[Rfam]
RNA sequence: AUAAAUAUUUAAAGUAUUCCGUAGACAGUAGGUGCGAAAGCGUAAGAUGAUUCGCCUACCGAGGUUUCCAUACUUGUUGAUAGUAAUGGUCUCUUCGUAUGUCUGCGGAGAGGCUUUGAUUUUUAUAU
Numbered sequence: 001a002u003a004a005a006u007a008u009u010u011a012a013a014g015u016a017u018u019c020c021g022u023a024g025a026c027a028g029u030a031g032g033u034g035c036g037a038a039a040g041c042g043u044a045a046g047a048u049g050a051u052u053c054g055c056c057u058a059c060c061g062a063g064g065u066u067u068c069c070a071u072a073c074u075u076g077u078u079g080a081u082a083g084u085a086a087u088g089g090u091c092u093c094u095u096c097g098u099a100u101g102u103c104u105g106c107g108g109a110g111a112g113g114c115u116u117u118g119a120u121u122u123u124u125a126u127a128u
Base pairs, nucleotide, nucleotide: 028059029058030057031056032055033054034041035040090113091112092111093110094109095108096107097106098105099104
RNA: Ribosomal protein L10 leader